[Rfam]
RNA: SAM (S-adenosyl methionine) riboswitch aptamer
RNA sequence: GGUCAUGAGUGCCAGCACACAGCCCCGGCUUGCUGGCCGGCAACCCUCCACCGCGGCGGGGUGCCCCGGGUGAAGACCUGGCGGAGCGCCACACGGCGCUGCGCAAGCGCGGGUC
Numbered sequence: 001g002g003u004c005a006u007g008a009g010u011g012c013c014a015g016c017a018c019a020c021a022g023c024c025c026c027g028g029c030u031u032g033c034u035g036g037c038c039g040g041c042a043a044c045c046c047u048c049c050a051c052c053g054c055g056g057c058g059g060g061g062u063g064c065c066c067c068g069g070g071u072g073a074a075g076a077c078c079u080g081g082c083g084g085a086g087c088g089c090c091a092c093a094c095g096g097c098g099c100u101g102c103g104c105a106a107g108c109g110c111g112g113g114u115c
Stems, first nucleotide, its partner, number of pairs: 001078004009038001011037006021030002039065003044061003048056002081104003085100006
Dot-bracket structure: ((((....(.((((((....((......)).)))))))(((..(((.((.....))..))).))).........))))..(((.((((((....)))))).)))...........